[Rfam]
RNA sequence: UCUGGAUAAACUUGUAUCCAUCCAAGAGAAUGGGGCAAGUCACUUUACGGAAUUAAAUUGAGUAACACAUUUCAGGAUUGAUAAAGACUUACAUAUAAGUGUAAACGACCCAAGUUUGCACUUGGAGUGAAAUUCUGAAGUGCUAGGAUAACCGUGUGUCCUUUAACAUAUUUUAUGUUAUAAAAAUAAUCUUGAAUAGCUUUAACUAGCUUCUCGAGUUACGAUUAA
Numbered sequence: 001u002c003u004g005g006a007u008a009a010a011c012u013u014g015u016a017u018c019c020a021u022c023c024a025a026g027a028g029a030a031u032g033g034g035g036c037a038a039g040u041c042a043c044u045u046u047a048c049g050g051a052a053u054u055a056a057a058u059u060g061a062g063u064a065a066c067a068c069a070u071u072u073c074a075g076g077a078u079u080g081a082u083a084a085a086g087a088c089u090u091a092c093a094u095a096u097a098a099g100u101g102u103a104a105a106c107g108a109c110c111c112a113a114g115u116u117u118g119c120a121c122u123u124g125g126a127g128u129g130a131a132a133u134u135c136u137g138a139a140g141u142g143c144u145a146g147g148a149u150a151a152c153c154g155u156g157u158g159u160c161c162u163u164u165a166a167c168a169u170a171u172u173u174u175a176u177g178u179u180a181u182a183a184a185a186a187u188a189a190u191c192u193u194g195a196a197u198a199g200c201u202u203u204a205a206c207u208a209g210c211u212u213c214u215c216g217a218g219u220u221a222c223g224a225u226u227a228a
Stems, first nucleotide, its partner, number of pairs: 001051004006046001008044001010040006017034005022028001071139008086128001088127002097123002100120007145162005151225001153223004157186001164180005191218005198211004
The record is a 228-nucleotide RNA, which matches "IS605-orfB-I RNA" in Rfam.